[Rfam]
RNA sequence: UCCAGUGGUAGUCAGCUGUCCAGGGCAGUAUGCCUGUGAUAGUGUUACACUGCUGGGAGAUUAAGAUCAGUCAUUUCUUCUUGCUGCUGUUGUCACUGUUCUGGAGACAGCUAAUGCCAAAAAGAAGUGGCAGUGUGCUUCCCUGAGAGUGCGCUAAAGAUUUGCUUUCCCUCUUUAGUGCUAGUCUGGAAGCAUACAUA
Dot-bracket structure: (((((((((.((..((((((((((........)))).))))))...)))))))))))..........(.(((((((.....(.(....(.((((.((.....)).)))).)....)...)....))))))).).((((((((........(((.((((((...........)))))).)))......)))))))).....
Rfam assigns this 200-nucleotide RNA from Probosciger aterrimus to the family "Small nucleolar RNA SNORA74".
The family's RNA type in Rfam is H/ACA-box small nucleolar RNA.
On this family, see Bortolin and Kiss, RNA 1998: "Human U19 intron-encoded snoRNA is processed from a long primary transcript that possesses little potential for protein coding".
Rfam 15.1 lists 1,348 matches to the family in 628 species.
The organism belongs to Probosciger, within Eukaryota.